[Rfam]
RNA sequence: GGCAGAGUAGGGCCACACGUGCUGGUCCCGGCCUGGAAUGGGCCAGGGGGACCUUCAGUGCCGGCGGGACGGGGAGUUGUCCGCCGGACGAACAGCGUUUCCAAAACGCGGCAGUGGGUGGUCCGCAUCCCGCUGCC
Numbered sequence: 001g002g003c004a005g006a007g008u009a010g011g012g013c014c015a016c017a018c019g020u021g022c023u024g025g026u027c028c029c030g031g032c033c034u035g036g037a038a039u040g041g042g043c044c045a046g047g048g049g050g051a052c053c054u055u056c057a058g059u060g061c062c063g064g065c066g067g068g069a070c071g072g073g074g075a076g077u078u079g080u081c082c083g084c085c086g087g088a089c090g091a092a093c094a095g096c097g098u099u100u101c102c103a104a105a106a107c108g109c110g111g112c113a114g115u116g117g118g119u120g121g122u123c124c125g126c127a128u129c130c131c132g133c134u135g136c137c
Stems, first nucleotide, its partner, number of pairs: 001137005010124007018116002020113003058089002061087008072130003076126001093110001095109005

Rfam assigns this 137-nucleotide sequence from Pseudoflavonifractor sp. An184 to the family "THF (Tetrahydrofolate) riboswitch aptamer". About the family: Tetrahydrofolate (THF) riboswitch was first reported for Ames et al. as an RNA motif in 5' untranslated (5'-UTR)regions of folate transport and biosynthesis genes in Firmicutes genomes. The organism belongs to Pseudoflavonifractor, within Bacteria.